Rfam assigns this 99-nucleotide sequence from Zea mays to the family "Small nucleolar RNA Z118/Z121/Z120".
On this family, see Chen et al., Nucleic Acids Res 2003: "The high diversity of snoRNAs in plants: identification and comparative study of 120 snoRNA genes from Oryza sativa".
The family has 7 seed sequences and 435 matches in Rfam 15.1.
Lineage of the source: Eukaryota > Viridiplantae > Liliopsida > Petrosaviidae > Zea.
Gene Ontology terms of the family: nucleolus and RNA processing.
The family's RNA type in Rfam is C/D-box small nucleolar RNA.
RNA sequence: UAUUUGCCAUGAGGAUCCUAUUACGACGGUAUCUUAAGGGUAUGGCUUAUUCCAACCCUUCUGAUUAUACCAAAACUGAAUUAUGAUUCUGAGCAAAUC
Numbered sequence: 001u002a003u004u005u006g007c008c009a010u011g012a013g014g015a016u017c018c019u020a021u022u023a024c025g026a027c028g029g030u031a032u033c034u035u036a037a038g039g040g041u042a043u044g045g046c047u048u049a050u051u052c053c054a055a056c057c058c059u060u061c062u063g064a065u066u067a068u069a070c071c072a073a074a075a076c077u078g079a080a081u082u083a084u085g086a087u088u089c090u091g092a093g094c095a096a097a098u099c
Base pairs, nucleotide, nucleotide: 002098003097004096005095006094007093037060038059039058040057